[Rfam]
The family of this 70-nucleotide sequence from Drosophila rhopaloa is "let-7 microRNA precursor family". Its Rfam clan is "let-7 microRNA precursor clan". From the family's description: This family represents the microRNAs (miRNA) let-7 and mir-98. let-7 was identified from a study of developmental timing in C. elegans, and was later shown to be part of a much larger class of non-coding RNAs termed miRNAs. The literature on the family includes a 2018 paper in Cell by Liu et al., "Cryo-EM Structure of Human Dicer and Its Complexes with a Pre-miRNA Substrate".
RNA sequence: GCAAAUUGAGGUAGUAGGUUGUAUAGUAGUAAUUACAAAUCAUACUAUACAAUGUGCUAGCUUUCUUUGC
Number, nucleotide and partner (000 for none) at each position: 001g070002c069003a068004a067005a066006u000007u000008g063009a062010g061011g000012u059013a058014g057015u056016a055017g000018g053019u052020u051021g050022u049023a048024u047025a046026g045027u044028a000029g000030u000031a000032a000033u000034u000035a000036c000037a000038a000039a000040u000041c000042a000043u000044a027045c026046u025047a024048u023049a022050c021051a020052a019053u018054g000055u016056g015057c014058u013059a012060g000061c010062u009063u008064u000065c000066u005067u004068u003069g002070c001